[Rfam]
Rfam assigns this 74-nucleotide RNA sequence from Acetoanaerobium sticklandii to the family "tRNA". By type it is a transfer RNA. A search with the family's covariance model found it, with a score of 67 bits.
RNA sequence: GUGCCCAUAGCUCAGCCGGAUAGAGUAUUUGACUACGAAUCAAAGGGUCGGGGGUUCGAAUCCCUCUGGGCACA
Numbered sequence: 001g002u003g004c005c006c007a008u009a010g011c012u013c014a015g016c017c018g019g020a021u022a023g024a025g026u027a028u029u030u031g032a033c034u035a036c037g038a039a040u041c042a043a044a045g046g047g048u049c050g051g052g053g054g055u056u057c058g059a060a061u062c063c064c065u066c067u068g069g070g071c072a073c074a
Base pairs, nucleotide, nucleotide: 001073002072003071004070005069006068007067010026011025012024013023028044029043030042031041032040050066051065052064053063054062